[Rfam]
RNA sequence: GCCUUCCUGGUCAAGUGGUCCUAAACAUUUCACAAUUAUGCUAGAGAACUGUUGAACUGUUAAGAACCACUGCACCAAGG
Number, nucleotide and partner (000 for none) at each position: 001g000002c000003c000004u000005u000006c000007c000008u000009g000010g000011u000012c000013a000014a071015g070016u069017g068018g067019u066020c000021c064022u063023a000024a061025a060026c059027a058028u000029u056030u055031c054032a053033c000034a000035a000036u000037u000038a000039u000040g000041c000042u000043a000044g000045a000046g000047a000048a000049c000050u000051g000052u000053u032054g031055a030056a029057c000058u027059g026060u025061u024062a000063a022064g021065a000066a019067c018068c017069a016070c015071u014072g000073c000074a000075c000076c000077a000078a000079g000080g000
The record is an 80-nucleotide RNA sequence from Gopherus evgoodei, which matches "mir-203 microRNA precursor family" in Rfam. The family's consensus secondary structure was predicted with RNAalifold. Taxonomically the source falls in Gopherus (Eukaryota, Craniata, Vertebrata, Teleostomi).